SAH (S-adenosyl-L-homocysteine) riboswitch aptamer: an 88-nucleotide RNA sequence from Agrilutibacter solisilvae. The organism belongs to Agrilutibacter, within Bacteria.

RNA sequence: CCCACCGAGGGGCGCUGCAUGCCGGUCCGCACAGGACGUCCGGCUCAGGCUCGGGGGGCCUUACAGAUCAGAACGGCGCCCGUUAAUG
Numbered sequence: 001c002c003c004a005c006c007g008a009g010g011g012g013c014g015c016u017g018c019a020u021g022c023c024g025g026u027c028c029g030c031a032c033a034g035g036a037c038g039u040c041c042g043g044c045u046c047a048g049g050c051u052c053g054g055g056g057g058g059c060c061u062u063a064c065a066g067a068u069c070a071g072a073a074c075g076g077c078g079c080c081c082g083u084u085a086a087u088g
Base pairs, nucleotide, nucleotide: 002057003056005054006053007052008051021044022043023042024041025040